[Rfam]
RNA sequence: UUGGGUGAAAUCACUGUAGGACCCACAUUUUAGAAAAUGGAAUCCACAUAAAGUGAUGGGACGUACAUUAAUUUCACCCAA
Numbered sequence: 001u002u003g004g005g006u007g008a009a010a011u012c013a014c015u016g017u018a019g020g021a022c023c024c025a026c027a028u029u030u031u032a033g034a035a036a037a038u039g040g041a042a043u044c045c046a047c048a049u050a051a052a053g054u055g056a057u058g059g060g061a062c063g064u065a066c067a068u069u070a071a072u073u074u075c076a077c078c079c080a081a
Base pairs, nucleotide, nucleotide: 001081002080003079004078005077006076007075008074009073010072011071013069015067016066017065018064023059024058025057026055027054028053029052030051031050032049

MIR5269 microRNA precursor family: an 81-nucleotide RNA sequence from Medicago truncatula. The match comes from Rfam's covariance-model search (71 bits). The family's consensus secondary structure was predicted with RNAalifold. The organism belongs to Medicago, within Eukaryota. The family has 2 seed sequences and 389 matches in Rfam 15.1.